FMN riboswitch aptamer (RFN element): a 118-nucleotide RNA sequence from Flavonifractor sp. An52.
It scores 109 bits against the family's covariance model.
RNA sequence: UGCAGUCUUCAGGGCAGGGUGAAAUUCCCGAUCGGCGGUAAAGUCCGCGAGCGCGUAAGCGCAGGAUUUGGUGCAAUUCCAAAACCGACAGUUAAAGUCUGGAUGGAAGAAGACGCCG
Numbered sequence: 001u002g003c004a005g006u007c008u009u010c011a012g013g014g015c016a017g018g019g020u021g022a023a024a025u026u027c028c029c030g031a032u033c034g035g036c037g038g039u040a041a042a043g044u045c046c047g048c049g050a051g052c053g054c055g056u057a058a059g060c061g062c063a064g065g066a067u068u069u070g071g072u073g074c075a076a077u078u079c080c081a082a083a084a085c086c087g088a089c090a091g092u093u094a095a096a097g098u099c100u101g102g103a104u105g106g107a108a109g110a111a112g113a114c115g116c117c118g
Stems, first nucleotide, its partner, number of pairs: 005114006017029003031098002033087002035048004043085002051062003067083005089101003